[Rfam]
RNA sequence: UGUAAAUGGAUGGGGGUCAUAGCAGAAGCAUUCAUGUCGCGACACCUGUCAGGUAAUACCUGAGAAUUCUGCU
Numbered sequence: 001u002g003u004a005a006a007u008g009g010a011u012g013g014g015g016g017u018c019a020u021a022g023c024a025g026a027a028g029c030a031u032u033c034a035u036g037u038c039g040c041g042a043c044a045c046c047u048g049u050c051a052g053g054u055a056a057u058a059c060c061u062g063a064g065a066a067u068u069c070u071g072c073u
Stems, first nucleotide, its partner, number of pairs: 013046002016043003021073007028040002050062005